[Rfam]
RNA: ACEA small nucleolar RNA U3
Organism: Stentor coeruleus
RNA sequence: AGGACUGUACUCGUACAGGAUCACUUCUAUAGUGAUUUUUCCUAUUUACUUCAUCAAAACAGGCGAUAACCCGCUCCAGGAGGAUGAUUUGUGCUCUUGCAGCCAAUUGGGAUAUCUCGAUCAGGUACUUGUACUUGUCAUUGAGUGAUGACCUUUGGGCUUAUAGCUUUAGGCUUGCAAGUGGGUCUGACUGGAU
Number, nucleotide and partner (000 for none) at each position: 001a043002g042003g041004a000005c000006u035007g000008u034009a033010c032011u031012c000013g000014u000015a000016c000017a028018g027019g026020a025021u000022c000023a000024c000025u020026u019027c018028u017029a000030u000031a011032g010033u009034g008035a006036u000037u000038u000039u000040u000041c003042c002043u001044a000045u000046u000047u068048a067049c000050u065051u000052c063053a000054u061055c000056a000057a000058a000059a000060c000061a054062g000063g052064c000065g050066a000067u048068a047069a000070c000071c000072c000073g000074c000075u195076c194077c193078a192079g191080g000081a000082g000083g000084a000085u000086g000087a000088u000089u000090u000091g000092u000093g000094c183095u000096c181097u180098u179099g000100c177101a176102g174103c173104c172105a000106a000107u000108u000109g153110g152111g000112a000113u000114a000115u000116c000117u144118c143119g142120a000121u000122c137123a000124g000125g000126u000127a000128c000129u000130u000131g000132u000133a000134c000135u000136u000137g122138u000139c000140a000141u000142u119143g118144a117145g000146u000147g000148a000149u000150g000151a000152c110153c109154u000155u000156u000157g000158g000159g000160c000161u000162u000163a000164u000165a000166g000167c000168u000169u000170u000171a000172g104173g103174c102175u000176u101177g100178c000179a098180a097181g096182u000183g094184g000185g000186u000187c000188u000189g000190a000191c079192u078193g077194g076195a075196u000